[Rfam]
The record is an 81-nucleotide RNA from Erpetoichthys calabaricus, which matches "mir-26 microRNA precursor family" in Rfam. For this family Rfam cites "Identification of novel genes coding for small expressed RNAs" (Lagos-Quintana et al., Science, 2001). The family's consensus secondary structure was predicted with RNAalifold. The source organism's lineage runs through Eukaryota, Opisthokonta, Bilateria, Craniata and Erpetoichthys.
RNA sequence: CUGCACCCAAAUGCAAGUAAUCAAGAAUAGGCCAACUUUGAUUCAUACAGCCUAUCCUGGAUUACUUGAACAUGGUUACAG
Dot-bracket structure: .((.(.(((..(.(((((((((.((.((((((.................)))))).)).))))))))).)..))).).)).